[Rfam]
RNA sequence: CAUUAAGGUGAUGAGAAAGUUGUCGGAAAAUAUGAUGUCGAUUGAUAAAUACUUCCAGACUACAAUUAUCUGAUUAAUG
Numbered sequence: 001c002a003u004u005a006a007g008g009u010g011a012u013g014a015g016a017a018a019g020u021u022g023u024c025g026g027a028a029a030a031u032a033u034g035a036u037g038u039c040g041a042u043u044g045a046u047a048a049a050u051a052c053u054u055c056c057a058g059a060c061u062a063c064a065a066u067u068a069u070c071u072g073a074u075u076a077a078u079g
Stems, first nucleotide, its partner, number of pairs: 001079006